This 102-nucleotide RNA from Candidatus Afipia apatlaquensis belongs to the Rfam family "Rhizobiales-2 RNA". The base pairs follow the family's consensus structure, which is taken from published work.
RNA sequence: CGGCGACGAAUUCCUCGUUUCCUGCAGCCUGAAUGGCGCGGGCGCCCAUCCACCCUCGUGCCGCUCUGGUUUGGCCCGUCCGGUCGUCCCCCCGGGCGGGCC
Numbered sequence: 001c002g003g004c005g006a007c008g009a010a011u012u013c014c015u016c017g018u019u020u021c022c023u024g025c026a027g028c029c030u031g032a033a034u035g036g037c038g039c040g041g042g043c044g045c046c047c048a049u050c051c052a053c054c055c056u057c058g059u060g061c062c063g064c065u066c067u068g069g070u071u072u073g074g075c076c077c078g079u080c081c082g083g084u085c086g087u088c089c090c091c092c093c094g095g096g097c098g099g100g101c102c
Stems, first nucleotide, its partner, number of pairs: 002019004026070001028069002031066002034063006073102011
The source organism's lineage runs through Bacteria, Pseudomonadota, Alphaproteobacteria, Nitrobacteraceae and Afipia.